RNA sequence: CGAACGAAAAGCUUGUGUAAGGGGAAAACAUACGGACAGUGAGGUUCCUUGCCGUCAUCAUAACCCUUGGGAAGGUCUGAGAAAAACUAUAAAAAUCUCUAGCGGAGAUUCCUGUGAAAGUGGGGGGCGAACAACCAGACACGACACCCUUCUGGAUUAUAAUAUGAAGUCUUUUGAUGGAUUGACAUAGUCCAGGAGUGUUUAAACGCGGUUCGCUGGUGGUAGCUCUAUGGAGUUCGAUACGCAAGGCAUCAUAUUAUGAUGUAACUCAAUUCAGACUACUCUUUUGUUCG
Numbered sequence: 001c002g003a004a005c006g007a008a009a010a011g012c013u014u015g016u017g018u019a020a021g022g023g024g025a026a027a028a029c030a031u032a033c034g035g036a037c038a039g040u041g042a043g044g045u046u047c048c049u050u051g052c053c054g055u056c057a058u059c060a061u062a063a064c065c066c067u068u069g070g071g072a073a074g075g076u077c078u079g080a081g082a083a084a085a086a087c088u089a090u091a092a093a094a095a096u097c098u099c100u101a102g103c104g105g106a107g108a109u110u111c112c113u114g115u116g117a118a119a120g121u122g123g124g125g126g127g128c129g130a131a132c133a134a135c136c137a138g139a140c141a142c143g144a145c146a147c148c149c150u151u152c153u154g155g156a157u158u159a160u161a162a163u164a165u166g167a168a169g170u171c172u173u174u175u176g177a178u179g180g181a182u183u184g185a186c187a188u189a190g191u192c193c194a195g196g197a198g199u200g201u202u203u204a205a206a207c208g209c210g211g212u213u214c215g216c217u218g219g220u221g222g223u224a225g226c227u228c229u230a231u232g233g234a235g236u237u238c239g240a241u242a243c244g245c246a247a248g249g250c251a252u253c254a255u256a257u258u259a260u261g262a263u264g265u266a267a268c269u270c271a272a273u274u275c276a277g278a279c280u281a282c283u284c285u286u287u288u289g290u291u292c293g
Stems, first nucleotide, its partner, number of pairs: 001293004007287003012248007020068005035056003039052005077277005085220001087218001095109005110125006127216006145200003249265007